[Rfam]
RNA sequence: GGAGUCAGCCAGACAACCGCUGCUUUAUUGUUGAUUACCCUAGGUAAUUGUUAAUAAAGGGGAGGAAAGUCCGGGCUCCAUAGGGCAGGGUGCCAGAUAACGUCUGGGAGGCGAAAGCCUACGACUAGUGCAACAGAGAGCAAACCGCCGAUGGCUAUUAAGCACAGGUAAGGGUGAAAGGGUGCGGUAAGAGCGCACCGCGCAACUGGCAACAGUUUGUGGCACGGUAAACUCCACCCGGAGCAAGGCCAAAUAGGGGUUCACUAGAUGCGGCCCGCAUCGAACCCGGGUAGGCUGCUUGAGUCAGUGCGCAAGUGCUGGCCUAGAUGAAUGGUUGUCCACGACAGAACCCGGCUUAUCGGCUGACUCUAAAA
Numbered sequence: 001g002g003a004g005u006c007a008g009c010c011a012g013a014c015a016a017c018c019g020c021u022g023c024u025u026u027a028u029u030g031u032u033g034a035u036u037a038c039c040c041u042a043g044g045u046a047a048u049u050g051u052u053a054a055u056a057a058a059g060g061g062g063a064g065g066a067a068a069g070u071c072c073g074g075g076c077u078c079c080a081u082a083g084g085g086c087a088g089g090g091u092g093c094c095a096g097a098u099a100a101c102g103u104c105u106g107g108g109a110g111g112c113g114a115a116a117g118c119c120u121a122c123g124a125c126u127a128g129u130g131c132a133a134c135a136g137a138g139a140g141c142a143a144a145c146c147g148c149c150g151a152u153g154g155c156u157a158u159u160a161a162g163c164a165c166a167g168g169u170a171a172g173g174g175u176g177a178a179a180g181g182g183u184g185c186g187g188u189a190a191g192a193g194c195g196c197a198c199c200g201c202g203c204a205a206c207u208g209g210c211a212a213c214a215g216u217u218u219g220u221g222g223c224a225c226g227g228u229a230a231a232c233u234c235c236a237c238c239c240g241g242a243g244c245a246a247g248g249c250c251a252a253a254u255a256g257g258g259g260u261u262c263a264c265u266a267g268a269u270g271c272g273g274c275c276c277g278c279a280u281c282g283a284a285c286c287c288g289g290g291u292a293g294g295c296u297g298c299u300u301g302a303g304u305c306a307g308u309g310c311g312c313a314a315g316u317g318c319u320g321g322c323c324u325a326g327a328u329g330a331a332u333g334g335u336u337g338u339c340c341a342c343g344a345c346a347g348a349a350c351c352c353g354g355c356u357u358a359u360c361g362g363c364u365g366a367c368u369c370u371a372a373a374a
Base pairs, nucleotide, nucleotide: 001370002369003368004367005366006365007364008363009362010361011359012339013338014337015336016335017334018333020062021061023059024058025057026056027055028054029053030052067357068356069355071354072353073352074351075350076243077242078241079240083276084275085274086273088239089238090237091236092235093107094106095105096104097103108122109120110119111118112117123234124233128232129231130228131227145173146172147169148168149167152164154163155162156161181199182198183197184196185195186194200223201221202220203219204218205217206215207214208213247296248295249294250293257287258286259285260284261283262282267281268280269279270278271277303322304321305320306319307318308317309316310315
Description
Bacterial RNase P class A: a 374-nucleotide sequence from Arsenophonus sp. ENCA. The match comes from Rfam's covariance-model search (340 bits).